[Rfam]
A member of the RNA family "drz-agam-1 ribozyme" from Hermetia illucens, 79 nucleotides long. On this family, see Webb et al., Science 2009: "Widespread occurrence of self-cleaving ribozymes". It scores 37 bits against the family's covariance model. Gene Ontology term of the family: catalytic activity. NCBI's taxonomy places the organism under Eukaryota, Insecta, Aparaglossata, Stratiomyidae, Hermetia.
RNA sequence: UGCUACCAAAUCCUAUUUUCACCGCCACGUGGUGAUCGCUGGGAGUUCUUUCUUCAUAAAAAACUGCAGACGGAGGAGG
Numbered sequence: 001u002g003c004u005a006c007c008a009a010a011u012c013c014u015a016u017u018u019u020c021a022c023c024g025c026c027a028c029g030u031g032g033u034g035a036u037c038g039c040u041g042g043g044a045g046u047u048c049u050u051u052c053u054u055c056a057u058a059a060a061a062a063a064c065u066g067c068a069g070a071c072g073g074a075g076g077a078g079g
Stems, first nucleotide, its partner, number of pairs: 012079003016075004021033003045065001047063001049061003053058001